Shown here is a 130-nucleotide sequence from Thermoactinomyces daqus, a member of the family "ylbH leader". From the family's description: This family is a putative regulatory RNA structure that is found upstream of the ylbH gene in B. subtilis and related low GC Gram-positive bacteria. Its family is annotated with regulation of gene expression in the Gene Ontology. The organism belongs to Thermoactinomyces, within Bacteria.

[Rfam]
RNA sequence: GUAAAAAAAUGGCUCGCGCCUUGUUACGCGAGCCUCAAUGUAUCUUUCACAAUCGAGUUGUGAAAAAUACUAAAUGGGAGAGGAGAAACCGGAGGAAGAGCUUAUGGGGAAACGUAAGUCUUCUCCGCGG
Numbered sequence: 001g002u003a004a005a006a007a008a009a010u011g012g013c014u015c016g017c018g019c020c021u022u023g024u025u026a027c028g029c030g031a032g033c034c035u036c037a038a039u040g041u042a043u044c045u046u047u048c049a050c051a052a053u054c055g056a057g058u059u060g061u062g063a064a065a066a067a068u069a070c071u072a073a074a075u076g077g078g079a080g081a082g083g084a085g086a087a088a089c090c091g092g093a094g095g096a097a098g099a100g101c102u103u104a105u106g107g108g109g110a111a112a113c114g115u116a117a118g119u120c121u122u123c124u125c126c127g128c129g130g
Stems, first nucleotide, its partner, number of pairs: 011034008035078002038075002045065009090127004095123004100119005
Dot-bracket structure: ..........((((((((........))))))))((.((.....(((((((((...)))))))))........)).))...........((((.((((.(((((..........)))))))))))))...